[Rfam]
RNA sequence: UGGCAACUAUGAUGAAGUAUUUGGUCUGUAUUACUAAAUGAAGACAACAGUCCCUCUAAGCUGAUGUUGCCA
Numbered sequence: 001u002g003g004c005a006a007c008u009a010u011g012a013u014g015a016a017g018u019a020u021u022u023g024g025u026c027u028g029u030a031u032u033a034c035u036a037a038a039u040g041a042a043g044a045c046a047a048c049a050g051u052c053c054c055u056c057u058a059a060g061c062u063g064a065u066g067u068u069g070c071c072a
Stems, first nucleotide, its partner, number of pairs: 001072007

Rfam assigns this 72-nucleotide sequence from Erinaceus europaeus to the family "Small nucleolar RNA SNORD127". For this family Rfam cites "snoSeeker: an advanced computational package for screening of guide and orphan snoRNA genes in the human genome" (Yang et al., Nucleic Acids Res, 2006). It is one of the family's seed sequences. The family's RNA type in Rfam is C/D-box small nucleolar RNA. Taxonomically the source falls in Erinaceus (Eukaryota, Eumetazoa, Euteleostomi, Sarcopterygii).